[Rfam]
Background: Histone 3' UTR stem-loop: a 45-nucleotide RNA from Denticeps clupeoides. Rfam classes the family as a cis-regulatory element. For this family Rfam cites "The sequence of the stem and flanking sequences at the 3' end of histone mRNA are critical determinants for the binding of the stem-loop binding protein" (Williams and Marzluff, Nucleic Acids Res, 1995). The family's consensus secondary structure is taken from published work. Taxonomically the source falls in Denticeps (Eukaryota, Opisthokonta, Metazoa, Eumetazoa).
RNA sequence: AAAAAGGCUCUUUUAAGAGCCACACACUGAUUUCCAGAAAAGGCG
Numbered sequence: 001a002a003a004a005a006g007g008c009u010c011u012u013u014u015a016a017g018a019g020c021c022a023c024a025c026a027c028u029g030a031u032u033u034c035c036a037g038a039a040a041a042g043g044c045g
Base pairs, nucleotide, nucleotide: 006021007020008019009018010017011016